[Rfam]
Y RNA: a 110-nucleotide RNA from Macaca mulatta. From the family's description: Y RNAs are components of the Ro ribonucleoprotein particle (Ro RNP), in association with Ro60 and La proteins. The family's RNA type in Rfam is non-coding RNA gene. On this family, see Teunissen et al., Nucleic Acids Res 2000: "Conserved features of Y RNAs: a comparison of experimentally derived secondary structures". Taxonomically the source falls in Macaca (Eukaryota, Opisthokonta, Chordata, Euteleostomi).
RNA sequence: AGCUGGUCCAAAGGUAGUGAGUUAUCUCAGCUGGUUGUUCAGUCUGUUCUAGAUUGAACUCUUGUUCUACUCUUUCCCUCCUUCUCACUACUGCACUUGACUAGUCUUAA
Numbered sequence: 001a002g003c004u005g006g007u008c009c010a011a012a013g014g015u016a017g018u019g020a021g022u023u024a025u026c027u028c029a030g031c032u033g034g035u036u037g038u039u040c041a042g043u044c045u046g047u048u049c050u051a052g053a054u055u056g057a058a059c060u061c062u063u064g065u066u067c068u069a070c071u072c073u074u075u076c077c078c079u080c081c082u083u084c085u086c087a088c089u090a091c092u093g094c095a096c097u098u099g100a101c102u103a104g105u106c107u108u109a110a
Stems, first nucleotide, its partner, number of pairs: 002105007010098002014094002016089006041073002045069002